RNA sequence: CUGGAAUGAUGCAAAAUUAGCCAAAUCAGACAUCUUUGUGCUCCUGCAGGCUUUUUCUUGCAAGCUUUACCUAAUAUUGGUGCUCUUGGUGAAAUUUCCUAUAUUCGGUAAAUUUUGCUAAGCACUUUCUUGAGCUUGCAUUUGGAAGCCUUCAGUGGAAGUGCAUAUCUCUGAUGAUAACAGUGAGAAUGGUUGCUUGCUGACCAGA
Numbered sequence: 001c002u003g004g005a006a007u008g009a010u011g012c013a014a015a016a017u018u019a020g021c022c023a024a025a026u027c028a029g030a031c032a033u034c035u036u037u038g039u040g041c042u043c044c045u046g047c048a049g050g051c052u053u054u055u056u057c058u059u060g061c062a063a064g065c066u067u068u069a070c071c072u073a074a075u076a077u078u079g080g081u082g083c084u085c086u087u088g089g090u091g092a093a094a095u096u097u098c099c100u101a102u103a104u105u106c107g108g109u110a111a112a113u114u115u116u117g118c119u120a121a122g123c124a125c126u127u128u129c130u131u132g133a134g135c136u137u138g139c140a141u142u143u144g145g146a147a148g149c150c151u152u153c154a155g156u157g158g159a160a161g162u163g164c165a166u167a168u169c170u171c172u173g174a175u176g177a178u179a180a181c182a183g184u185g186a187g188a189a190u191g192g193u194u195g196c197u198u199g200c201u202g203a204c205c206a207g208a
Stems, first nucleotide, its partner, number of pairs: 001207004